[Rfam]
RNA sequence: AGCACUUGUGUAUUUUUGUUUAACUUGUGGAGGAAGACUUAUAGACAGGUGAAAAAAAAAAAAAAUCCUCUUUCACAAGCCAGAAGUCAUUGUUCAGAAUGAGUUUUGAUACAUGUAAGCAGGAAUAUU
Numbered sequence: 001a002g003c004a005c006u007u008g009u010g011u012a013u014u015u016u017u018g019u020u021u022a023a024c025u026u027g028u029g030g031a032g033g034a035a036g037a038c039u040u041a042u043a044g045a046c047a048g049g050u051g052a053a054a055a056a057a058a059a060a061a062a063a064a065a066u067c068c069u070c071u072u073u074c075a076c077a078a079g080c081c082a083g084a085a086g087u088c089a090u091u092g093u094u095c096a097g098a099a100u101g102a103g104u105u106u107u108g109a110u111a112c113a114u115g116u117a118a119g120c121a122g123g124a125a126u127a128u129u
Stems, first nucleotide, its partner, number of pairs: 003051007011043001013037005019031001024029001065126002068123002072119002075116001081108005087102004
RNA: Small nucleolar RNA SNORA40